Annotation: The record is an 85-nucleotide RNA sequence from Morus notabilis, which matches "Small nucleolar RNA Z221/R21b" in Rfam. For this family Rfam cites "The high diversity of snoRNAs in plants: identification and comparative study of 120 snoRNA genes from Oryza sativa" (Chen et al., Nucleic Acids Res, 2003). Gene Ontology terms of the family: RNA processing and nucleolus. NCBI's taxonomy places the organism under Eukaryota, Euphyllophyta, Mesangiospermae, Pentapetalae, Morus. The base pairs follow the family's consensus structure, which was predicted with WAR. By type it is a C/D-box small nucleolar RNA.
RNA sequence: AGGCAGUGAUGAGCAAUUGAGAUGUCAUGCACCACUCUGAAAAUUGAUUGAUGACAAAUUUCUCAUACCCAUUACUCUGAUGCCU
Numbered sequence: 001a002g003g004c005a006g007u008g009a010u011g012a013g014c015a016a017u018u019g020a021g022a023u024g025u026c027a028u029g030c031a032c033c034a035c036u037c038u039g040a041a042a043a044u045u046g047a048u049u050g051a052u053g054a055c056a057a058a059u060u061u062c063u064c065a066u067a068c069c070c071a072u073u074a075c076u077c078u079g080a081u082g083c084c085u
Stems, first nucleotide, its partner, number of pairs: 001085004
Dot-bracket structure: ((((.............................................................................))))